[Rfam]
RNA sequence: UAGUCGGAACCCGAAAAGACAAAAUAGAGUAGGGA
Numbered sequence: 001u002a003g004u005c006g007g008a009a010c011c012c013g014a015a016a017a018g019a020c021a022a023a024a025u026a027g028a029g030u031a032g033g034g035a
Stems, first nucleotide, its partner, number of pairs: 003020003010034003
A member of the RNA family "DUF805b RNA" from Porphyromonadaceae bacterium COT-184 OH4590, 35 nucleotides long. Lineage of the source: Bacteria > Bacteroidota > Bacteroidia > Bacteroidales > Porphyromonadaceae. The base pairs follow the family's consensus structure, which is taken from published work. The family is grouped with related families in Rfam's "DUF805 clan". The family's RNA type in Rfam is cis-regulatory element.